[Rfam]
RNA: tRNA
Organism: Cryptococcus deneoformans
RNA sequence: UCUUCGAUAGUACAGGGGUUAGUAUAUCCGCUUUUCAGGAACUCAACUUCCAAGGUGGCGCGGACGACCCGGGUUCGAAUCCCGGUCGGAGAA
Dot-bracket structure: (((((((..((((........)))).(((((............................)))))....(((((.......)))))))))))).
Numbered sequence: 001u002c003u004u005c006g007a008u009a010g011u012a013c014a015g016g017g018g019u020u021a022g023u024a025u026a027u028c029c030g031c032u033u034u035u036c037a038g039g040a041a042c043u044c045a046a047c048u049u050c051c052a053a054g055g056u057g058g059c060g061c062g063g064a065c066g067a068c069c070c071g072g073g074u075u076c077g078a079a080u081c082c083c084g085g086u087c088g089g090a091g092a093a
Stems, first nucleotide, its partner, number of pairs: 001092007010025004027064005069085005